A member of the RNA family "S4-Flavobacteria ribosomal protein leader" from Solanum commersonii, 33 nucleotides long. By type it is a cis-regulatory leader.
RNA sequence: AAUAAACAAAGGAUAAUACCUUAAUUUUUUGUU
Numbered sequence: 001a002a003u004a005a006a007c008a009a010a011g012g013a014u015a016a017u018a019c020c021u022u023a024a025u026u027u028u029u030u031g032u033u
Stems, first nucleotide, its partner, number of pairs: 001033006008027001009022004